[Rfam]
RNA sequence: GAAAUGUGAGGACGGAACGGGCAGCCGUCGCCCUUGUUGGAGAUGUAGGAGUGUCGCCCUACCAUAUUUU
Numbered sequence: 001g002a003a004a005u006g007u008g009a010g011g012a013c014g015g016a017a018c019g020g021g022c023a024g025c026c027g028u029c030g031c032c033c034u035u036g037u038u039g040g041a042g043a044u045g046u047a048g049g050a051g052u053g054u055c056g057c058c059c060u061a062c063c064a065u066a067u068u069u070u
Base pairs, nucleotide, nucleotide: 001070002069003068004067005066006065007064008063011029012028013027014026015025020055021054022053023052031040045062046061047060048059049058

Background: The record is a 70-nucleotide RNA, which matches "skipping-rope RNA" in Rfam. The sequence is in the family's curated seed alignment. By type it is a small RNA.